About this RNA
Rfam assigns this 68-nucleotide sequence from Paramixta manurensis to the family "Fluoride riboswitch aptamer (crcB RNA motif)". A search with the family's covariance model found it, with a score of 56 bits. Pairs were carried over by alignment from the consensus structure, which is taken from published work. Lineage of the source: Bacteria > Gammaproteobacteria > Enterobacterales > Erwiniaceae > Paramixta.

RNA sequence: AAAAGACAAGGUGAUGGCGUUCCACCUUCCCCAACCGCCCCUUCAGGGCUGAUGACGCCUGAUAUGAC
Numbered sequence: 001a002a003a004a005g006a007c008a009a010g011g012u013g014a015u016g017g018c019g020u021u022c023c024a025c026c027u028u029c030c031c032c033a034a035c036c037g038c039c040c041c042u043u044c045a046g047g048g049c050u051g052a053u054g055a056c057g058c059c060u061g062a063u064a065u066g067a068c
Base pairs, nucleotide, nucleotide: 010026011025012024013023016059017058018057019056020055021054037049038048039047040046